[Rfam]
RNA sequence: GUUCCCCUUACAGCCAUUAAAUCAUUCUCUCUACAAUUAAGAAAAUCCUCGGGAACUG
Numbered sequence: 001g002u003u004c005c006c007c008u009u010a011c012a013g014c015c016a017u018u019a020a021a022u023c024a025u026u027c028u029c030u031c032u033a034c035a036a037u038u039a040a041g042a043a044a045a046u047c048c049u050c051g052g053g054a055a056c057u058g
Stems, first nucleotide, its partner, number of pairs: 001056006

This 58-nucleotide RNA from Polysphondylium violaceum belongs to the Rfam family "Class I RNA from Dictyostelium". It scores 46 bits against the family's covariance model. Rfam's curators write: Dictyostelium Class I RNA was first reported for Aspegren et al. 2004 in Dictyostelium discoideum. The literature on the family includes a 2011 paper in Genome Biol by Sucgang et al., "Comparative genomics of the social amoebae Dictyostelium discoideum and Dictyostelium purpureum". By type it is a non-coding RNA gene. Pairs were carried over by alignment from the consensus structure, which is taken from published work.